Shown here is a 202-nucleotide RNA from Fluviibacter phosphoraccumulans, a member of the family "Proteobacterial sRNA psRNA2".
RNA sequence: GGGUUACUCCUUGUGCUUGCGCACUUUGGUUGAUAAAGAUUCGACACCUCUAUCAAACCGGGUAACCCCACCCUUUGGCAAGGACUACUGUCAGAUCAAGUCUGAACUACUACACCUUAUGGAAUGCGUAACGUUCUACUGUUAGCUUUAUCGCAAGCAGCCCUAAUGACAAGCAUCAGUCUAGUUUUGGCUUCCUCUGUAG
Numbered sequence: 001g002g003g004u005u006a007c008u009c010c011u012u013g014u015g016c017u018u019g020c021g022c023a024c025u026u027u028g029g030u031u032g033a034u035a036a037a038g039a040u041u042c043g044a045c046a047c048c049u050c051u052a053u054c055a056a057a058c059c060g061g062g063u064a065a066c067c068c069c070a071c072c073c074u075u076u077g078g079c080a081a082g083g084a085c086u087a088c089u090g091u092c093a094g095a096u097c098a099a100g101u102c103u104g105a106a107c108u109a110c111u112a113c114a115c116c117u118u119a120u121g122g123a124a125u126g127c128g129u130a131a132c133g134u135u136c137u138a139c140u141g142u143u144a145g146c147u148u149u150a151u152c153g154c155a156a157g158c159a160g161c162c163c164u165a166a167u168g169a170c171a172a173g174c175a176u177c178a179g180u181c182u183a184g185u186u187u188u189g190g191c192u193u194c195c196u197c198u199g200u201a202g
Base pairs, nucleotide, nucleotide: 001068002067003066004065005064006063007062009061010060013024014023015022016021028058030056031055032054033053034052035051037049038048077192078191082186083185085184086183090107091106092104093103094102095101096100109180110179111178114176